[Rfam]
RNA sequence: AAUCGAUAAAGGCAAACCCUUCGUGAGGGGGGGACGCAAAGCCCAGGAACCCGCCGGGUGGUUUUACCCGUGGGUUAGCCAGGAUGCCGAA
Numbered sequence: 001a002a003u004c005g006a007u008a009a010a011g012g013c014a015a016a017c018c019c020u021u022c023g024u025g026a027g028g029g030g031g032g033g034a035c036g037c038a039a040a041g042c043c044c045a046g047g048a049a050c051c052c053g054c055c056g057g058g059u060g061g062u063u064u065u066a067c068c069c070g071u072g073g074g075u076u077a078g079c080c081a082g083g084a085u086g087c088c089g090a091a
Stems, first nucleotide, its partner, number of pairs: 012037002017032006040085001042083002046080002048076003055070006

A member of the RNA family "c-di-GMP-I riboswitch aptamer" from Deinococcus ruber, 91 nucleotides long. A search with the family's covariance model found it, with a score of 60 bits. Taxonomically the source falls in Deinococcus (Bacteria, Deinococcota, Deinococcales, Deinococcaceae).